[Rfam]
RNA sequence: AUGCGAUGAGUCGAUCGGUAGCGCAAGCUACCCAUCAAGCAUAGGAGGUCAUAUCGCAGGAGCGGACCUUGAUGAGUUGUGUGAACCUGCUCAUCACACGGAAGUGCCUUUCGGAUCCCUCCUCUUUUUGAGUGAGGGAUUUUUU
Numbered sequence: 001a002u003g004c005g006a007u008g009a010g011u012c013g014a015u016c017g018g019u020a021g022c023g024c025a026a027g028c029u030a031c032c033c034a035u036c037a038a039g040c041a042u043a044g045g046a047g048g049u050c051a052u053a054u055c056g057c058a059g060g061a062g063c064g065g066a067c068c069u070u071g072a073u074g075a076g077u078u079g080u081g082u083g084a085a086c087c088u089g090c091u092c093a094u095c096a097c098a099c100g101g102a103a104g105u106g107c108c109u110u111u112c113g114g115a116u117c118c119c120u121c122c123u124c125u126u127u128u129u130g131a132g133u134g135a136g137g138g139a140u141u142u143u144u145u
Stems, first nucleotide, its partner, number of pairs: 013036003017032006043109003046069004055064003070096008097106003115140007123132001
Annotation
A member of the RNA family "MarS sRNA" from Streptococcus danieliae, 145 nucleotides long. Rfam links the family to the GO terms mRNA 5'-UTR binding and positive regulation of translation, ncRNA-mediated. The literature on the family includes a 2017 paper in Sci Rep by Pappesch et al., "The Regulatory Small RNA MarS Supports Virulence of Streptococcus pyogenes". Rfam's curators write: Interacts with the 5'UTR of the mga transcript (the multiple virulence gene regulator gene) and was renamed MarS for mag-activating regulatory sRNA. In MarS deletion strains expression of mga and several Mga-activated genes is reduced. This down-regulation of virulence factors leads to increased susceptibility of the deletion strain to phagocytosis, reduced adherence to human keratinocytes. Rfam classes the family as a small RNA. The match comes from Rfam's covariance-model search (110 bits).